RNA sequence: AGAUCGGGCCUUUCAGGCAUCCUCUCCUAAAAACUUUCAGGCCGGCCCCUUGGGGUCGGCCCUUUUUUUGUUGCCC
Numbered sequence: 001a002g003a004u005c006g007g008g009c010c011u012u013u014c015a016g017g018c019a020u021c022c023u024c025u026c027c028u029a030a031a032a033a034c035u036u037u038c039a040g041g042c043c044g045g046c047c048c049c050u051u052g053g054g055g056u057c058g059g060c061c062c063u064u065u066u067u068u069u070g071u072u073g074c075c076c
Stems, first nucleotide, its partner, number of pairs: 008018004040061009
Rfam assigns this 76-nucleotide sequence from Sphingomonas sp. KC8 to the family "Makes More Granules Regulator RNA (mmgR)". The pairing is the family consensus, mapped onto this sequence. By type it is a small RNA. The organism belongs to Sphingomonas, within Bacteria.